[Rfam]
The family of this 68-nucleotide RNA from Stegastes partitus is "Small nucleolar RNA SNORD58". Rfam describes the family as follows. snoRNA U58 is found in introns 1, 3 and 6 of the ribosomal protein RPL17 gene in humans. On this family, see Galardi et al., Mol Cell Biol 2002: "Purified box C/D snoRNPs are able to reproduce site-specific 2'-O-methylation of target RNA in vitro". The organism belongs to Stegastes, within Eukaryota. By type it is a C/D-box small nucleolar RNA. Rfam 15.1 lists 2,484 matches to the family in 680 species.
RNA sequence: UCGCGCUGAUGACUUCUUAGGACACCUUUGGAUUUCUGAUGAAAACAACCUGUUGAAUUCUGAGCGAG
Numbered sequence: 001u002c003g004c005g006c007u008g009a010u011g012a013c014u015u016c017u018u019a020g021g022a023c024a025c026c027u028u029u030g031g032a033u034u035u036c037u038g039a040u041g042a043a044a045a046c047a048a049c050c051u052g053u054u055g056a057a058u059u060c061u062g063a064g065c066g067a068g
Stems, first nucleotide, its partner, number of pairs: 001067004